[Rfam]
RNA sequence: GUGGGAGGAAGCUCAUUGUAGAGGUCACAUGCUGAGUGCUCGUCACUCGUCCAAUCACCUCGGGGAAGGUCUGAGACAAGAGCCAAUAGCUACCCUUGCAGGGUAUCACCUGACAAGGGUGAGCGAGUGCACAGAAAUAAUGGACCAAAGCGUGCAUUUCUCACAGGAGAAGCCAGAGGGCGCAGUUUCUCAGCUCCACUGGUGGAUGUGGUGUACGCUGGUUUGGAAUCACUUGCGGCUGGCAAAUGAGUCCGAUGUAUGAGGUGGGGCACAGCUCCAGAACCCAAUUCAGACUACUCUCCCCCCAC
Numbered sequence: 001g002u003g004g005g006a007g008g009a010a011g012c013u014c015a016u017u018g019u020a021g022a023g024g025u026c027a028c029a030u031g032c033u034g035a036g037u038g039c040u041c042g043u044c045a046c047u048c049g050u051c052c053a054a055u056c057a058c059c060u061c062g063g064g065g066a067a068g069g070u071c072u073g074a075g076a077c078a079a080g081a082g083c084c085a086a087u088a089g090c091u092a093c094c095c096u097u098g099c100a101g102g103g104u105a106u107c108a109c110c111u112g113a114c115a116a117g118g119g120u121g122a123g124c125g126a127g128u129g130c131a132c133a134g135a136a137a138u139a140a141u142g143g144a145c146c147a148a149a150g151c152g153u154g155c156a157u158u159u160c161u162c163a164c165a166g167g168a169g170a171a172g173c174c175a176g177a178g179g180g181c182g183c184a185g186u187u188u189c190u191c192a193g194c195u196c197c198a199c200u201g202g203u204g205g206a207u208g209u210g211g212u213g214u215a216c217g218c219u220g221g222u223u224u225g226g227a228a229u230c231a232c233u234u235g236c237g238g239c240u241g242g243c244a245a246a247u248g249a250g251u252c253c254g255a256u257g258u259a260u261g262a263g264g265u266g267g268g269g270c271a272c273a274g275c276u277c278c279a280g281a282a283c284c285c286a287a288u289u290c291a292g293a294c295u296a297c298u299c300u301c302c303c304c305c306c307a308c
Base pairs, nucleotide, nucleotide: 001308002307003306004305007302008301009300012263013262014261015260016259021061022060023059024058034048035047036046037045038044071292072291073290074289075288081240082239083238084237091105092104093103094102095101106122107121108120109119110118111117123236124235125234126233127232128231129230144222145221146220265279266278267277268276269275270274
Background
The family of this 308-nucleotide RNA sequence from Cyprinodon variegatus is "Nuclear RNase P". For this family Rfam cites "Ribonuclease P: unity and diversity in a tRNA processing ribozyme" (Frank and Pace, Annu Rev Biochem, 1998). It is annotated as a ribozyme. The match comes from Rfam's covariance-model search (216 bits). The organism belongs to Cyprinodon, within Eukaryota. Rfam links the family to the GO terms ribonuclease P complex, ribonuclease P activity and tRNA processing.